This 379-nucleotide sequence from Ancylobacter pratisalsi belongs to the Rfam family "Bacterial RNase P class A". NCBI's taxonomy places the organism under Bacteria, Alphaproteobacteria, Hyphomicrobiales, Xanthobacteraceae, Ancylobacter. The base pairs follow the family's consensus structure, which is taken from published work. Ribonuclease P (RNase P) is a ubiquitous endoribonuclease, found in archaea, bacteria and eukarya as well as chloroplasts and mitochondria.
[Rfam]
RNA sequence: CCAGCCGGCCGGACGGCCGCGUCGCCGCAAGGCGCCGAGGAAAGUCCGGGCUCCACGGAGACACGGUGCCGGAUAACGUCCGGCGGGGGUGACCCUAGGGAAAGUGCCACAGAAAUCAAACCGCCUCGGGUUCGCCCGCGGCAAGGGUGAAACGGUGCGGUAAGAGCGCACCGCGCGGCCGGCAACGGAAGCGGCAUGGCAAACCCCACCGGGAGCAAAGUCGUAUAGGGGUGGCACGAGGCUCUGCCUCAGGUCCUGUCUCCGGACAGCCGCCCGGGUUGACUGCUUGAGGCGCCGGGCAACCGGCGUCCCAGAGGAAUGGCCGUCACGUGGGAGAAAUCCCGCCAUACAGAACCCGGCUUACAGGCCGGCUGGCAAC
Numbered sequence: 001c002c003a004g005c006c007g008g009c010c011g012g013a014c015g016g017c018c019g020c021g022u023c024g025c026c027g028c029a030a031g032g033c034g035c036c037g038a039g040g041a042a043a044g045u046c047c048g049g050g051c052u053c054c055a056c057g058g059a060g061a062c063a064c065g066g067u068g069c070c071g072g073a074u075a076a077c078g079u080c081c082g083g084c085g086g087g088g089g090u091g092a093c094c095c096u097a098g099g100g101a102a103a104g105u106g107c108c109a110c111a112g113a114a115a116u117c118a119a120a121c122c123g124c125c126u127c128g129g130g131u132u133c134g135c136c137c138g139c140g141g142c143a144a145g146g147g148u149g150a151a152a153c154g155g156u157g158c159g160g161u162a163a164g165a166g167c168g169c170a171c172c173g174c175g176c177g178g179c180c181g182g183c184a185a186c187g188g189a190a191g192c193g194g195c196a197u198g199g200c201a202a203a204c205c206c207c208a209c210c211g212g213g214a215g216c217a218a219a220g221u222c223g224u225a226u227a228g229g230g231g232u233g234g235c236a237c238g239a240g241g242c243u244c245u246g247c248c249u250c251a252g253g254u255c256c257u258g259u260c261u262c263c264g265g266a267c268a269g270c271c272g273c274c275c276g277g278g279u280u281g282a283c284u285g286c287u288u289g290a291g292g293c294g295c296c297g298g299g300c301a302a303c304c305g306g307c308g309u310c311c312c313a314g315a316g317g318a319a320u321g322g323c324c325g326u327c328a329c330g331u332g333g334g335a336g337a338a339a340u341c342c343c344g345c346c347a348u349a350c351a352g353a354a355c356c357c358g359g360c361u362u363a364c365a366g367g368c369c370g371g372c373u374g375g376c377a378a379c
Stems, first nucleotide, its partner, number of pairs: 001375010011364001012327007020037002023034004042362003046359005051215004060261001064211005069083005084098001085096004099206002104204002106200003121146002123142003127138004154172006173195001174193003179188003219284004229275006253267004291310008